[Rfam]
RNA sequence: CUCGAGACUAGAGUCACAUCUCGACACAGCUCUUGUCCUGGUGUGCUGUAGUCCUCGGAGAGAAUCUGCUGGUCUUGAUUCACUGGUGGAGGCAGUCAGUGCCCCUGCUAGUGCCCUGGUCAGAAACAUGC
Numbered sequence: 001c002u003c004g005a006g007a008c009u010a011g012a013g014u015c016a017c018a019u020c021u022c023g024a025c026a027c028a029g030c031u032c033u034u035g036u037c038c039u040g041g042u043g044u045g046c047u048g049u050a051g052u053c054c055u056c057g058g059a060g061a062g063a064a065u066c067u068g069c070u071g072g073u074c075u076u077g078a079u080u081c082a083c084u085g086g087u088g089g090a091g092g093c094a095g096u097c098a099g100u101g102c103c104c105c106u107g108c109u110a111g112u113g114c115c116c117u118g119g120u121c122a123g124a125a126a127c128a129u130g131c
Base pairs, nucleotide, nucleotide: 002058003057004056005055006054007052008051009050012047013046015045016044017043018042019041020040023037024036025035026034069123070122071121072120073119074118077115081113082112083111084110085109086108088106089105091103092102093101

About this RNA:
The family of this 131-nucleotide sequence from Trichechus manatus is "Small nucleolar RNA SNORA3/SNORA45 family". Its family is annotated with RNA processing and nucleolus in the Gene Ontology. For this family Rfam cites "A novel experimental approach for systematic identification of box H/ACA snoRNAs from eukaryotes" (Gu et al., Nucleic Acids Res, 2005). The organism belongs to Trichechus manatus, within Eukaryota. The family's consensus secondary structure was predicted with RNAalifold. By type it is an H/ACA-box small nucleolar RNA. The members of this family belong to the H/ACA class of snoRNAs which are thought to guide the sites of modification of uridines to pseudouridines. This family includes mouse snoMBI-28 and human homologues ACA3 (SNORA3) and ACA3-2 (SNORA45).